[Rfam]
RNA sequence: CGCUCAUCCAGAGGGGCAGAGGGAACGGCCCUGCGAAGCCCCGGCAACCGGCGUCAGCCCGUCAUCUCGAUCCAGCGAGGUAGCUGACGACAUCGGUGCCAAUUCCGGCCCACCUGUGGGACAGAUGAGGA
Numbered sequence: 001c002g003c004u005c006a007u008c009c010a011g012a013g014g015g016g017c018a019g020a021g022g023g024a025a026c027g028g029c030c031c032u033g034c035g036a037a038g039c040c041c042c043g044g045c046a047a048c049c050g051g052c053g054u055c056a057g058c059c060c061g062u063c064a065u066c067u068c069g070a071u072c073c074a075g076c077g078a079g080g081u082a083g084c085u086g087a088c089g090a091c092a093u094c095g096g097u098g099c100c101a102a103u104u105c106c107g108g109c110c111c112a113c114c115u116g117u118g119g120g121a122c123a124g125a126u127g128a129g130g131a
Stems, first nucleotide, its partner, number of pairs: 003129006013042005021031003026107003043100004048096004104123001109120004